[Rfam]
RNA: U1 spliceosomal RNA
Organism: Tupaia belangeri
RNA sequence: AGACUUACCUGGCAGGGGAAAUGUCAUGAUCACGGGGGUGGUUUUCCCAGGGCCAGGCUCACCCAUUGCACUGUGGGUGCGCUGACCCUCUGCGAUUUCCCCAAAUGUGGGAAACUCAGCUGCGUAAUUUGUGGUAGCGGGGGACUGCAUCCGUGCCCUCCUUAA
Number, nucleotide and partner (000 for none) at each position: 001a000002g000003a000004c000005u000006u000007a000008c000009c000010u000011g000012g123013c122014a121015g120016g048017g047018g046019a045020a044021a043022u000023g042024u041025c040026a039027u038028g000029a000030u000031c000032a000033c000034g000035g000036g000037g000038g027039u026040g025041g024042u023043u021044u020045u019046c018047c017048c016049a091050g090051g089052g088053c000054c000055a000056g083057g082058c081059u000060c079061a078062c077063c076064c075065a000066u000067u000068g000069c000070a000071c000072u000073g000074u000075g064076g063077g062078u061079g060080c000081g058082c057083u056084g000085a000086c000087c000088c052089u051090c050091u049092g000093c000094g117095a116096u114097u113098u112099c000100c110101c109102c000103a000104a000105a000106u000107g000108u000109g101110g100111g000112a098113a097114a096115c000116u095117c094118a000119g000120c015121u014122g013123c012124g000125u000126a000127a000128u000129u000130u000131g000132u000133g000134g000135u000136a000137g000138c000139g163140g162141g161142g160143g000144a159145c000146u000147g156148c155149a154150u000151c000152c000153g000154u149155g148156c147157c000158c000159u144160c142161c141162u140163u139164a000165a000